[Rfam]
RNA sequence: AUUAAAAAAUAUAAAUAAAUUUUUGGGCACCUGAAUGUCCCCUGAUAUAAAUUAGGCUAAGCUGAGGCUGCUCAACUGGGACAUUUUUGUU
Number, nucleotide and partner (000 for none) at each position: 001a091002u000003u089004a088005a087006a086007a000008a000009a084010u083011a000012u000013a000014a000015a000016u000017a000018a000019a000020u000021u000022u000023u075024u074025g073026g072027g071028c070029a069030c067031c066032u065033g000034a063035a000036u061037g000038u000039c000040c000041c056042c055043u054044g053045a052046u051047a000048u000049a000050a000051a046052u045053u044054a043055g042056g041057c000058u000059a000060a000061g036062c000063u034064g000065a032066g031067g030068c000069u029070g028071c027072u026073c025074a024075a023076c000077u000078g000079g000080g000081a000082c000083a010084u009085u000086u006087u005088u004089g003090u000091u001
About this RNA:
This 91-nucleotide RNA from Cebus imitator belongs to the Rfam family "DUF3800-V RNA". Rfam classes the family as a small RNA.